The record is a 97-nucleotide sequence, which matches "SAM-I/IV (S-adenosyl methionine) riboswitch aptamer" in Rfam. Its Rfam clan is "SAM clan". Gene Ontology terms of the family: S-adenosylmethionine metabolic process and regulation of gene expression. The sequence is in the family's curated seed alignment.
[Rfam]
RNA sequence: AGGAUUCAUCAAGAGUGAGAUUAGAUUCUCCUCCAACCUGCCAACUCCGGCAAGGUGGAAAAAAUGAUGUGGUUAAUCAACAACUAAAGGAGUUAUA
Numbered sequence: 001a002g003g004a005u006u007c008a009u010c011a012a013g014a015g016u017g018a019g020a021u022u023a024g025a026u027u028c029u030c031c032u033c034c035a036a037c038c039u040g041c042c043a044a045c046u047c048c049g050g051c052a053a054g055g056u057g058g059a060a061a062a063a064a065u066g067a068u069g070u071g072g073u074u075a076a077u078c079a080a081c082a083a084c085u086a087a088a089g090g091a092g093u094u095a096u097a
Base pairs, nucleotide, nucleotide: 007069008068009067010066015031017030018029019028020027032059033058034057037055038054039053040051041050042049044093045092046091047090048089072081073080074079